[Rfam]
RNA sequence: UAAUGGGAUAGCUUCCCGUUAUAGUGAGUGGCUGAAUAAAUCCUACCCAACGGAUUAAGGCACACAAACCUGCUCCAACGGUCAAGUGACUGAGGAGGUGGUGAGUGGUAAGCGAUUACAAAUUAACUACUUAGGUAGUUGGGAGUCGCUUUGGGGGUCAACCAAGAAUCCCCCCUCGCACCCU
Number, nucleotide and partner (000 for none) at each position: 001u021002a020003a019004u018005g017006g016007g015008a014009u000010a000011g000012c000013u000014u008015c007016c006017c005018g004019u003020u002021a001022u000023a000024g179025u178026g177027a176028g175029u000030g000031g061032c060033u000034g000035a000036a000037u000038a000039a000040a055041u054042c053043c052044u000045a000046c000047c000048c000049a000050a000051c000052g043053g042054a041055u040056u000057a000058a000059g000060g032061c031062a000063c000064a106065c105066a000067a000068a102069c101070c100071u000072g000073c097074u096075c095076c094077a000078a000079c000080g000081g000082u000083c000084a000085a000086g000087u000088g000089a000090c000091u000092g000093a000094g076095g075096a074097g073098g000099u000100g070101g069102u068103g000104a000105g065106u064107g000108g000109u000110a000111a150112g149113c148114g147115a146116u145117u144118a000119c000120a000121a000122a000123u000124u141125a140126a139127c138128u000129a000130c000131u165132u164133a000134g000135g162136u000137a000138g127139u126140u125141g124142g000143g000144a117145g116146u115147c114148g113149c112150u111151u000152u000153g174154g173155g172156g171157g170158u000159c000160a000161a000162c135163c000164a132165a131166g000167a000168a000169u000170c157171c156172c155173c154174c153175c028176u027177c026178g025179c024180a000181c000182c000183c000184u000